[Rfam]
RNA: Mu-gpT-DE RNA
RNA sequence: CCCUGACAGACGCGCUGUGCGUCUGACACUAGCCUAGACAGGAGAUUCACAUG
Numbered sequence: 001c002c003c004u005g006a007c008a009g010a011c012g013c014g015c016u017g018u019g020c021g022u023c024u025g026a027c028a029c030u031a032g033c034c035u036a037g038a039c040a041g042g043a044g045a046u047u048c049a050c051a052u053g
Stems, first nucleotide, its partner, number of pairs: 002042004007025005